The record is a 105-nucleotide sequence, which matches "THF (Tetrahydrofolate) riboswitch aptamer" in Rfam.
It is one of the family's seed sequences.
[Rfam]
RNA sequence: AGCGAAGUAGGAUUUUAUGCGUCAAGUGUUCACAGGCUGGGGAGUCGCCGUGAAACGAAAAGCAGAAAGCGUGCUGCUUACGAUAUGAUUUCCGCACCCGUUGCU
Numbered sequence: 001a002g003c004g005a006a007g008u009a010g011g012a013u014u015u016u017a018u019g020c021g022u023c024a025a026g027u028g029u030u031c032a033c034a035g036g037c038u039g040g041g042g043a044g045u046c047g048c049c050g051u052g053a054a055a056c057g058a059a060a061a062g063c064a065g066a067a068a069g070c071g072u073g074c075u076g077c078u079u080a081c082g083a084u085a086u087g088a089u090u091u092c093c094g095c096a097c098c099c100g101u102u103g104c105u
Base pairs, nucleotide, nucleotide: 001105002104003103004102005101010093011092012091015088016087017086018085019084020082021081022080026056027055029054030053031052032051033050035049036048040099041098042097044095060079061078062077063076064075065074

Record summary:
Rfam describes the family as follows. Tetrahydrofolate (THF) riboswitch was first reported for Ames et al. as an RNA motif in 5' untranslated (5'-UTR)regions of folate transport and biosynthesis genes in Firmicutes genomes. The literature on the family includes a 2011 paper in Structure by Trausch et al., "The structure of a tetrahydrofolate-sensing riboswitch reveals two ligand binding sites in a single aptamer".